About this RNA: Shown here is a 141-nucleotide RNA sequence from Cohnella terricola, a member of the family "c-di-AMP riboswitch aptamer (ydaO/yuaA leader)". This family represents a conserved RNA structure found upstream of the ydaO and yuaA genes in Bacillus subtilis and related genes in other bacteria.
[Rfam]
RNA sequence: AAUCUAAAAUUGCCGAGUUCCCGUGAAUCGGGAAACGGGGGAACCAUCUUUCGGGUGAGUUGGCUUUGCAACAAAGGAGCCAUAGGGGAUACCUUCUACCGAACCCUCAAGCUAACCUCGUAGGCAGUGGAAGGAGUCACA
Dot-bracket structure: ..........((((...((((((.....))))))((((((.....(....).(((.....(((((((........)))))))..((.(........).))...))).........)))))).))))...............